The family of this 147-nucleotide sequence from Durio zibethinus is "small nucleolar RNA snoR134". A search with the family's covariance model found it, with a score of 90 bits. The organism belongs to Durio, within Eukaryota. Its family is annotated with nucleolus and RNA processing in the Gene Ontology.
Nucleotides: 147
Stems, first nucleotide, its partner, number of pairs: 003066004008061003017054005022048001024045003076140006087130002090127006099118003
Number, partner (000 for none) and nucleotide at each position: 001000c002000u003066g004065c005064a006063c007000g008061a009060a010059c011000u012000c013000u014000c015000c016000c017054g018053g019052g020051c021050u022048u023000a024045u025044c026043u027000g028000a029000a030000u031000c032000u033000c034000u035000a036000c037000c038000u039000u040000u041000g042000a043026a044025g045024a046000a047000c048022a049000a050021a051020g052019c053018c054017c055000c056000a057000a058000u059010g060009u061008u062000g063006g064005u065004g066003c067000u068000a069000a070000a071000c072000c073000c074000a075000u076140g077139c078138c079137g080136u081135u082000u083000u084000a085000c086000g087130u088129g089000u090127u091126g092125c093124g094123g095122a096000a097000u098000a099118g100117c101116c102000c103000u104000u105000u106000a107000u108000u109000u110000u111000c112000u113000a114000c115000u116101g117100g118099c119000u120000c121000u122095u123094c124093u125092g126091u127090g128000u129088c130087a131000a132000a133000u134000c135081g136080g137079c138078g139077g140076c141000u142000a143000u144000a145000c146000u147000c